[Rfam]
RNA sequence: AACUUUAGCGCAUCGACGAUAACAGCUAGAAUGGCCGCUGCGACGGAGGAUUGUCCCCCGAUGAGACCGCCAUUCUAGCUAUUAUCAUCAAGGUGCUAAAGU
Numbered sequence: 001a002a003c004u005u006u007a008g009c010g011c012a013u014c015g016a017c018g019a020u021a022a023c024a025g026c027u028a029g030a031a032u033g034g035c036c037g038c039u040g041c042g043a044c045g046g047a048g049g050a051u052u053g054u055c056c057c058c059c060g061a062u063g064a065g066a067c068c069g070c071c072a073u074u075c076u077a078g079c080u081a082u083u084a085u086c087a088u089c090a091a092g093g094u095g096c097u098a099a100a101g102u
Base pairs, nucleotide, nucleotide: 002102003101004100005099006098007097008096009095010094011093013091015089016088018086019085020084021083022082024080025079026078027077028076029075030074031073032072033071034070035069037067041063042062044060045059046058048056049055050054